[Rfam]
The record is a 165-nucleotide RNA sequence from Paraburkholderia phymatum, which matches "Burkholderia sRNA 2" in Rfam. Rfam's curators put it in the seed alignment. Rfam classes the family as a small RNA. Rfam's curators write: Upregulated in response to iron ion depletion. Predicted targets include MerR family transcriptional regulator. On this family, see Ghosh et al., Microbiology 2017: "Identification of novel small RNAs in Burkholderia cenocepacia KC-01 expressed under iron limitation and oxidative stress conditions". The base pairs follow the family's consensus structure, which was predicted with RNAfold.
RNA sequence: AUGAGUGCCUGUUCACAUACUUUUUUCCGCAGUUGCGCUGCAGAUCGCGUAGUCGUCGUCGCUGACCACAAGGCAGUGACAACGGCAAUGAAGCGAGCCACGAGGCGCCAUGCGAUGACCGAAGUCGAGCCGCUUGCCCCGGUUGCCGGGGCGGCGGCUUUUUUA
Numbered sequence: 001a002u003g004a005g006u007g008c009c010u011g012u013u014c015a016c017a018u019a020c021u022u023u024u025u026u027c028c029g030c031a032g033u034u035g036c037g038c039u040g041c042a043g044a045u046c047g048c049g050u051a052g053u054c055g056u057c058g059u060c061g062c063u064g065a066c067c068a069c070a071a072g073g074c075a076g077u078g079a080c081a082a083c084g085g086c087a088a089u090g091a092a093g094c095g096a097g098c099c100a101c102g103a104g105g106c107g108c109c110a111u112g113c114g115a116u117g118a119c120c121g122a123a124g125u126c127g128a129g130c131c132g133c134u135u136g137c138c139c140c141g142g143u144u145g146c147c148g149g150g151g152c153g154g155c156g157g158c159u160u161u162u163u164u165a
Base pairs, nucleotide, nucleotide: 007038008037009035011033012032013031014029046114047113048112049111050110060107061106062105063104084099085098086097116127117126118125119124128159129158130157131156132155133154135153136152137151138150139149140148